This 217-nucleotide sequence from Anaeromicropila herbilytica belongs to the Rfam family "T-box leader".
The source organism's lineage runs through Bacteria, Bacillota, Clostridia, Lachnospiraceae and Anaeromicropila.
RNA sequence: UUAAAUUCUAUGAUAAGAAGAGUAACUAAAAUUAUUUAUUCAGCGAGUAGGAAUGUGGUGUGAGUCCUAUAUUAAUAUUUUAGUGAAAAGGACCUUUGAGAAACUGCUUGAGUAUCAAUAUUUGAUAUAAGGGUAAGUCGUAUAGCUGCGUUAAAGCUUUAAGUGGGCUAGAGAUAGCCAAUUUGAGUGGUACCACGGAUUAUAUUCCGUCUCUUAC
Number, nucleotide and partner (000 for none) at each position: 001u000002u000003a000004a000005a000006u000007u101008c100009u000010a000011u000012g000013a000014u000015a096016a095017g094018a000019a000020g000021a000022g000023u000024a000025a084026c083027u082028a081029a080030a079031a000032u000033u000034a000035u000036u000037u000038a073039u000040u000041c000042a000043g000044c000045g000046a000047g070048u069049a068050g067051g066052a065053a000054u000055g000056u000057g000058g000059u000060g000061u000062g000063a000064g000065u052066c051067c050068u049069a048070u047071a000072u000073u038074a000075a000076u000077a000078u000079u030080u029081u028082a027083g026084u025085g000086a000087a000088a000089a000090g000091g000092a000093c000094c017095u016096u015097u000098g000099a000100g008101a007102a000103a000104c137105u136106g134107c133108u132109u131110g000111a000112g000113u000114a000115u000116c000117a000118a000119u000120a000121u000122u000123u000124g000125a000126u000127a000128u000129a000130a000131g109132g108133g107134u106135a000136a105137g104138u000139c150140g149141u148142a000143u000144a000145g000146c000147u000148g141149c140150g139151u000152u000153a000154a000155a000156g000157c000158u000159u000160u000161a000162a000163g000164u000165g000166g179167g178168c177169u176170a175171g000172a000173g000174a000175u170176a169177g168178c167179c166180a000181a000182u000183u000184u000185g213186a212187g211188u000189g000190g000191u000192a000193c000194c000195a210196c209197g208198g207199a206200u000201u000202a000203u000204a000205u000206u199207c198208c197209g196210u195211c187212u186213c185214u000215u000216a000217c000
Rfam describes the family as follows. Uncharged tRNA acts as the effector for transcription antitermination of genes in the T-box leader family.
Rfam 15.1 lists 19,395 matches to the family in 1,923 species.
It scores 114 bits against the family's covariance model.